A member of the RNA family "t44 RNA" from Succinatimonas hippei, 89 nucleotides long. NCBI's taxonomy places the organism under Bacteria, Pseudomonadati, Gammaproteobacteria, Succinivibrionaceae, Succinatimonas hippei.
RNA sequence: AAGUGUAAUUUUUAAAAACACACACUGCUUAUAAACGCUUUUCCCGGGUGCCUUUUAAGGUUGGGGAAACGGAGCAGUGGAGGCAUAAC
Numbered sequence: 001a002a003g004u005g006u007a008a009u010u011u012u013u014a015a016a017a018a019c020a021c022a023c024a025c026u027g028c029u030u031a032u033a034a035a036c037g038c039u040u041u042u043c044c045c046g047g048g049u050g051c052c053u054u055u056u057a058a059g060g061u062u063g064g065g066g067a068a069a070c071g072g073a074g075c076a077g078u079g080g081a082g083g084c085a086u087a088a089c
Stems, first nucleotide, its partner, number of pairs: 023079008037070001039068006050061004
The base pairs follow the family's consensus structure, which was predicted with LocARNA.
For this family Rfam cites "Transcriptome analysis of Escherichia coli using high-density oligonucleotide probe arrays" (Tjaden et al., Nucleic Acids Res, 2002).
It is annotated as a small RNA.
This family consists of a number of bacterial RNA genes of between 135 and 170 bases in length. The t44 gene has been identified in several species of enteric bacteria but homologs have also been identified in Pseudomonas and Coxiella species.